[Rfam]
RNA sequence: GUCGGAGUGCGGGGGUCCCUCAGCCCAGAUUGUGACAGGGCGCAGGUCAGGUCGAGGGAACCCACCAGUGCACC
Numbered sequence: 001g002u003c004g005g006a007g008u009g010c011g012g013g014g015g016u017c018c019c020u021c022a023g024c025c026c027a028g029a030u031u032g033u034g035a036c037a038g039g040g041c042g043c044a045g046g047u048c049a050g051g052u053c054g055a056g057g058g059a060a061c062c063c064a065c066c067a068g069u070g071c072a073c074c
Stems, first nucleotide, its partner, number of pairs: 004071001006069001008067002012063003016059006023052003028047001030045005

Description: A member of the RNA family "mir-9193 microRNA precursor family" from Myotis davidii, 74 nucleotides long. Gene Ontology terms of the family: RISC complex and miRNA-mediated post-transcriptional gene silencing.